About this RNA
sRNA-Xcc1: an 85-nucleotide RNA from Pseudomonas fluorescens.

RNA sequence: UGCCGGGAGUGGGCUAAUACAAGACCCGAAAGGGGAAUAUGUCCGGCCCUCUGUGUGGGGUUUCUUAACUCCCGGCACCCAGCCC
Number, nucleotide and partner (000 for none) at each position: 001u077002g076003c075004c074005g073006g072007g071008a070009g069010u000011g000012g044013g043014c000015u039016a038017a000018u000019a000020c000021a000022a000023g000024a000025c034026c033027c032028g000029a000030a000031a000032g027033g026034g025035g000036a000037a000038u016039a015040u000041g000042u000043c013044c012045g062046g061047c060048c059049c058050u057051c000052u000053g000054u000055g000056u000057g050058g049059g048060g047061u046062u045063u000064c000065u000066u000067a000068a000069c009070u008071c007072c006073c005074g004075g003076c002077a001078c000079c000080c000081a000082g000083c000084c000085c000
Notes
Rfam's curators put it in the seed alignment. A reference for the family is Wengelnik et al. (1996), "HrpG, a key hrp regulatory protein of Xanthomonas campestris pv. vesicatoria is homologous to two-component response regulators", Mol Plant Microbe Interact. NCBI's taxonomy places the organism under Bacteria, Pseudomonadati, Pseudomonadaceae, Pseudomonas, Pseudomonas fluorescens. The family's RNA type in Rfam is small RNA.